[Rfam]
RNA sequence: GGUAUUGUUAUUAAAACCACGAUAAGCCCCGGAACUUAUUGUGUCUAAGAUAAAUGAAACC
Number, nucleotide and partner (000 for none) at each position: 001g000002g000003u000004a000005u000006u000007g000008u057009u056010a055011u054012u053013a000014a051015a000016a000017c000018c043019a042020c041021g040022a039023u038024a037025a036026g035027c000028c000029c000030c000031g000032g000033a000034a000035c026036u025037u024038a023039u022040u021041g020042u019043g018044u000045c000046u000047a000048a000049g000050a000051u014052a000053a012054a011055u010056g009057a008058a000059a000060c000061c000
Ribosomal protein L13 leader: a 61-nucleotide RNA from Cytobacillus dafuensis.
The organism belongs to Cytobacillus, within Bacteria.
Rfam classes the family as a cis-regulatory leader.
From the family's description: This family is a putative r-protein leader autoregulatory structure found in B. subtilis and other low-GC Gram-positive bacteria. It is located in the 5' untranslated regions of mRNAs encoding the L13-S9 (rplM-rpsI) ribosomal protein operon.